[Rfam]
RNA: Plastid-ycf2 5UTR RNA
Organism: Rosa chinensis
RNA sequence: GUGCAUCCUGUAGGAAUUGAACUAACAACUUUGCCAAUUAUGAGCUAUGUGUUUUAACCAAUCAGCUAUGGAUGC
Numbered sequence: 001g002u003g004c005a006u007c008c009u010g011u012a013g014g015a016a017u018u019g020a021a022c023u024a025a026c027a028a029c030u031u032u033g034c035c036a037a038u039u040a041u042g043a044g045c046u047a048u049g050u051g052u053u054u055u056a057a058c059c060a061a062u063c064a065g066c067u068a069u070g071g072a073u074g075c
Stems, first nucleotide, its partner, number of pairs: 003075006010026002013023002040069003044066003050060002